[Rfam]
RNA: DUF805b RNA
Organism: Leptobacterium flavescens
RNA sequence: AAGGAGGAAACCGAAAAUCCUUUAACGAGUAGGUU
Numbered sequence: 001a002a003g004g005a006g007g008a009a010a011c012c013g014a015a016a017a018u019c020c021u022u023u024a025a026c027g028a029g030u031a032g033g034u035u
Base pairs, nucleotide, nucleotide: 002021003020004019005018010034011033012032